RNA sequence: GGUUCAAUGCCACAUCGUCGAUAGCUCAAGAGCGGUGACCGACGAUGCUAUGAUAGAACCAAUAACAAUUUUUUUGACAUCUUCAUAGGAAUCUAUUUAUCUUUUUUCUAUAGAUUUACAGAGCCGCUUUGUGUGAUUACACUU
Dot-bracket structure: .((((.(((...((((((.(.(.(((....)))....).).))))))...).)).))))...............(.(((........((...((....(((...........)))....))..))......))).)........
RNA: Small nucleolar RNA snoR2/U65